[Rfam]
RNA sequence: UGAGUUGGUGGCUAGGGUUCCGGCGUUUUUCUGAAGCGCGACUGGUCCGAGAGCCACCACCGGCGGAGGAGAAAACCCGUCGGGUGCACGGCGGGACAAAAGCCCGGGAGAC
Dot-bracket structure: ......((((((..((...(((((((((.....))))))..).)).))....)))))).((((((............))))))...(.[...(((.......))).)..]..

Shown here is a 112-nucleotide RNA from Rhizobium etli, a member of the family "Guanidine-I riboswitch aptamer". NCBI's taxonomy places the organism under Bacteria, Pseudomonadati, Pseudomonadota, Alphaproteobacteria, Rhizobium. Pairs were carried over by alignment from the consensus structure. Rfam's curators put it in the seed alignment.